[Rfam]
RNA sequence: CGGAUAGCCCCGUGUUGUGGUCUGACCCCCCGACGCCGACGGCAAUACGGGGCAUCCC
Numbered sequence: 001c002g003g004a005u006a007g008c009c010c011c012g013u014g015u016u017g018u019g020g021u022c023u024g025a026c027c028c029c030c031c032g033a034c035g036c037c038g039a040c041g042g043c044a045a046u047a048c049g050g051g052g053c054a055u056c057c058c
Stems, first nucleotide, its partner, number of pairs: 002057004007053012020040003